[Rfam]
RNA: Eukaryotic small subunit ribosomal RNA, nucleotides 622 to 1166
RNA sequence: CAGUUAAAACGCCCGUAGUCUGAACUGUGAGAUGUUUUUCAUUUUACUCUUUUUUUUGAAAGAGUAUGAAUGGACGACACUCAUUUUGAAAUGAAUGUUUGGAUUGAUCUUGAUUGAUUGAUUUUUGACAUUGAUUUUGAUUUACUGUGAAAAAAUUAGAGUGUUUCAAGCGCUUCUUGUGAAAGUAUAGCUUAGCAUGGUAUAAUAGUAUUUAUGUAUUGAUAAGACUUUAGUAGGAAGUUUUAUUGAUUGAAAAUGCAUCAAUAGGGGUAGUUGGGGCCAUUUGUAUUCCCUAGUCAGAGGUGAAAUUCUUGGAUUUUUGGAAGACGAACAGUUGCGAAAGCGUUUGGCAAGGAUAUUCCCAUUGAUCAAGGACGAAAGUUAGGGGAUCGAAGACGAUUAGAUACCGUCGUAGUCUUAACCAUAAACGUUGCCAUCUUAAAGAUGGUGUAUUGAUUAUUCAAUCGUACAUCCUUUUUAUUCGGGAAACCAAAGAUUUUGGGUUCUGGGGGGAGUAUGGUCGCAAGUCUGAAACUUAAAGGAAU
Numbered sequence: 001c002a003g004u005u006a007a008a009a010c011g012c013c014c015g016u017a018g019u020c021u022g023a024a025c026u027g028u029g030a031g032a033u034g035u036u037u038u039u040c041a042u043u044u045u046a047c048u049c050u051u052u053u054u055u056u057u058g059a060a061a062g063a064g065u066a067u068g069a070a071u072g073g074a075c076g077a078c079a080c081u082c083a084u085u086u087u088g089a090a091a092u093g094a095a096u097g098u099u100u101g102g103a104u105u106g107a108u109c110u111u112g113a114u115u116g117a118u119u120g121a122u123u124u125u126u127g128a129c130a131u132u133g134a135u136u137u138u139g140a141u142u143u144a145c146u147g148u149g150a151a152a153a154a155a156u157u158a159g160a161g162u163g164u165u166u167c168a169a170g171c172g173c174u175u176c177u178u179g180u181g182a183a184a185g186u187a188u189a190g191c192u193u194a195g196c197a198u199g200g201u202a203u204a205a206u207a208g209u210a211u212u213u214a215u216g217u218a219u220u221g222a223u224a225a226g227a228c229u230u231u232a233g234u235a236g237g238a239a240g241u242u243u244u245a246u247u248g249a250u251u252g253a254a255a256a257u258g259c260a261u262c263a264a265u266a267g268g269g270g271u272a273g274u275u276g277g278g279g280c281c282a283u284u285u286g287u288a289u290u291c292c293c294u295a296g297u298c299a300g301a302g303g304u305g306a307a308a309u310u311c312u313u314g315g316a317u318u319u320u321u322g323g324a325a326g327a328c329g330a331a332c333a334g335u336u337g338c339g340a341a342a343g344c345g346u347u348u349g350g351c352a353a354g355g356a357u358a359u360u361c362c363c364a365u366u367g368a369u370c371a372a373g374g375a376c377g378a379a380a381g382u383u384a385g386g387g388g389a390u391c392g393a394a395g396a397c398g399a400u401u402a403g404a405u406a407c408c409g410u411c412g413u414a415g416u417c418u419u420a421a422c423c424a425u426a427a428a429c430g431u432u433g434c435c436a437u438c439u440u441a442a443a444g445a446u447g448g449u450g451u452a453u454u455g456a457u458u459a460u461u462c463a464a465u466c467g468u469a470c471a472u473c474c475u476u477u478u479u480a481u482u483c484g485g486g487a488a489a490c491c492a493a494a495g496a497u498u499u500u501g502g503g504u505u506c507u508g509g510g511g512g513g514a515g516u517a518u519g520g521u522c523g524c525a526a527g528u529c530u531g532a533a534a535c536u537u538a539a540a541g542g543a544a545u
Base pairs, nucleotide, nucleotide: 001508002507003506009505011376013374014373018369019368020367267363268362269361270360271358272357274355275354279351280350281349282348285329286328289325290324291323292322295319296318300311301310302309337344338343381422382421383420384419385418386417391415395411396410397409398408433504434503435502436497437496438495440480441479442478445475447473448472449471450470451469452468454467455466456465484491485490510537511536512535519530520529522527